This 229-nucleotide sequence from Bacillus anthracis belongs to the Rfam family "T-box leader". Rfam classes the family as a cis-regulatory leader. Pairs were carried over by alignment from the consensus structure, which is taken from published work. For this family Rfam cites "Interaction between the acceptor end of tRNA and the T box stimulates antitermination in the Bacillus subtilis tyrS gene: a new role for the discriminator base" (Grundy et al., J Bacteriol, 1994).

RNA sequence: AUAUCGGCUUUGAAGGAAUACCAGUAGCGACUUAUAUCCCUGUCUCAGAGAACUGAUGGUUGGUGCAAAUCAGUACAUAUACAAGCGUGAAUUACAAUUCUGGAGCUUCUUUCCCGUAAUGCUUUUUAUGCAUGAAGAGAAAGACGGAUCUUUCCGUUAUCUUAAAGUGAGUGGUAAACAAUUACUUGUUUACAAAUAGGGUGGUACCGCGAUUUUUAUCGUCCCUAUC
Numbered sequence: 001a002u003a004u005c006g007g008c009u010u011u012g013a014a015g016g017a018a019u020a021c022c023a024g025u026a027g028c029g030a031c032u033u034a035u036a037u038c039c040c041u042g043u044c045u046c047a048g049a050g051a052a053c054u055g056a057u058g059g060u061u062g063g064u065g066c067a068a069a070u071c072a073g074u075a076c077a078u079a080u081a082c083a084a085g086c087g088u089g090a091a092u093u094a095c096a097a098u099u100c101u102g103g104a105g106c107u108u109c110u111u112u113c114c115c116g117u118a119a120u121g122c123u124u125u126u127u128a129u130g131c132a133u134g135a136a137g138a139g140a141a142a143g144a145c146g147g148a149u150c151u152u153u154c155c156g157u158u159a160u161c162u163u164a165a166a167g168u169g170a171g172u173g174g175u176a177a178a179c180a181a182u183u184a185c186u187u188g189u190u191u192a193c194a195a196a197u198a199g200g201g202u203g204g205u206a207c208c209g210c211g212a213u214u215u216u217u218a219u220c221g222u223c224c225c226u227a228u229c
Stems, first nucleotide, its partner, number of pairs: 007106002015101004027088003031085003041077003052074006109143005115137001145156003174193007198226004209222005